The record is a 116-nucleotide RNA from Bacillus sp. MUM 13, which matches "PyrR binding site" in Rfam. The match comes from Rfam's covariance-model search (62 bits). For this family Rfam cites "Molecular recognition of pyr mRNA by the Bacillus subtilis attenuation regulatory protein PyrR" (Bonner et al., Nucleic Acids Res, 2001). NCBI's taxonomy places the organism under Bacteria, Bacillati, Bacillota, Bacilli, Bacillus.
RNA sequence: UGACCCUUUAAAACAGUCCAGAGAGACUGGCAAGGAAAACGGAUUGCCUGACUAUGCAAUGCAAAGCAUAACCAGCCUUAAAUCCCCAUGCCCUCUCAGGCAUGGGGAUUUUUAUU
Dot-bracket structure: ....((((.....(((((......)))))..))))..........(.(((..(((((........)))))..))).)..(((((((((((((......))))))))))))).....
The base pairs follow the family's consensus structure, which is taken from published work. Rfam describes the family as follows. This family represents the PyrR binding site and terminator structure.